[Rfam]
RNA sequence: AAUGGGAAAUGAUGCCAAAGAUUCAAACAGAGGCGCCAGCUCUGCUGAAUUAUUUUUUUGCACGUCAGUCUGAUCCCAAA
Numbered sequence: 001a002a003u004g005g006g007a008a009a010u011g012a013u014g015c016c017a018a019a020g021a022u023u024c025a026a027a028c029a030g031a032g033g034c035g036c037c038a039g040c041u042c043u044g045c046u047g048a049a050u051u052a053u054u055u056u057u058u059u060g061c062a063c064g065u066c067a068g069u070c071u072g073a074u075c076c077c078a079a080a
Base pairs, nucleotide, nucleotide: 003078004077005076006075007074
A member of the RNA family "Small nucleolar RNA Z122" from Trifolium subterraneum, 80 nucleotides long. The base pairs follow the family's consensus structure, which was predicted with PFOLD. The match comes from Rfam's covariance-model search (55 bits). Lineage of the source: Eukaryota > Viridiplantae > fabids > Fabaceae > Trifolium.